Overview:
miR-430 microRNA precursor family: a 70-nucleotide RNA from Acanthochromis polyacanthus. Clan: mir-290 clan. Gene Ontology terms of the family: RISC complex and miRNA-mediated post-transcriptional gene silencing. A search with the family's covariance model found it, with a score of 68 bits. The literature on the family includes a 2005 paper in Science by Giraldez et al., "MicroRNAs regulate brain morphogenesis in zebrafish".
RNA sequence: UAUAUUACCCUAACUUGAGCACUGACUUUACUGUUGAAUUGAGUAAGUGCUACUUGUUGGGGUAGUUUCA
Numbered sequence: 001u002a003u004a005u006u007a008c009c010c011u012a013a014c015u016u017g018a019g020c021a022c023u024g025a026c027u028u029u030a031c032u033g034u035u036g037a038a039u040u041g042a043g044u045a046a047g048u049g050c051u052a053c054u055u056g057u058u059g060g061g062g063u064a065g066u067u068u069c070a
Base pairs, nucleotide, nucleotide: 004066005065006064007063008062009061010060011059013057014056017053018051019050020049021048022047023046025044026043027042